[Rfam]
A member of the RNA family "Small nucleolar RNA SNORA5" from Bambusicola thoracicus, 137 nucleotides long. The family's consensus secondary structure was predicted with RNAfold. Gene Ontology terms of the family: nucleolus and RNA processing. The family's RNA type in Rfam is H/ACA-box small nucleolar RNA.
RNA sequence: UGCAGCCCCAUCAAAGUCAGUCCCUGCCCCCUCCGUGGCAAGGAUGGGCCAUUCGGCUGCCACAGCAGUGCUGCAGUCCGUGUGCCCCACAUCCCUUCCCCUGGGACCUUGGGGACAAAAUGGUGCCACAGACACAC
Dot-bracket structure: .((((............((.(((.((((........)))).)))))..........))))............(..(((......(((((....................)))))........).))..)........

Clan: SNORA5 clan. About the family: ACA5 is a member of the H/ACA class of snoRNA that guide the sites of modification of uridines to pseudouridines. The source organism's lineage runs through Eukaryota, Metazoa, Gnathostomata, Sauropsida and Bambusicola.